[Rfam]
RNA sequence: GGUCACGUGGUUCGAAACCAUCCCACGAAAAAAAACUAAGGAGAG
Numbered sequence: 001g002g003u004c005a006c007g008u009g010g011u012u013c014g015a016a017a018c019c020a021u022c023c024c025a026c027g028a029a030a031a032a033a034a035a036c037u038a039a040g041g042a043g044a045g
Base pairs, nucleotide, nucleotide: 006027007026008025009024010023016037
The record is a 45-nucleotide RNA sequence from Mesobacillus persicus, which matches "PreQ1 (pre queuosine) riboswitch aptamer" in Rfam. The base pairs follow the family's consensus structure. About the family: This family is a bacterial riboswitch that binds to the metabolite preQ1, an intermediate in the biosynthesis of the modified nucleoside queuosine from GTP. One example of this riboswitch is located in the leader of the Bacillus subtilis ykvJKLM (queCDEF) operon which encodes four genes necessary for queuosine production. PreQ1 binding to the riboswitch aptamer is thought to induce premature transcription termination within the leader to down-regulate expression of these genes.